[Rfam]
RNA: Pseudomonas sRNA P31
RNA sequence: AAGAGACCUCCGGUAAAUCUGCCUGGUGCGUACGCAGGUUGUAAAAAAGCGGGAUGACGUGUGAAGGUCAUCCCGC
Numbered sequence: 001a002a003g004a005g006a007c008c009u010c011c012g013g014u015a016a017a018u019c020u021g022c023c024u025g026g027u028g029c030g031u032a033c034g035c036a037g038g039u040u041g042u043a044a045a046a047a048a049g050c051g052g053g054a055u056g057a058c059g060u061g062u063g064a065a066g067g068u069c070a071u072c073c074c075g076c
Stems, first nucleotide, its partner, number of pairs: 005040001007038003021029002049076004055070004
Dot-bracket structure: ....(.(((...........((.....))......))).)........((((..((((........))))..))))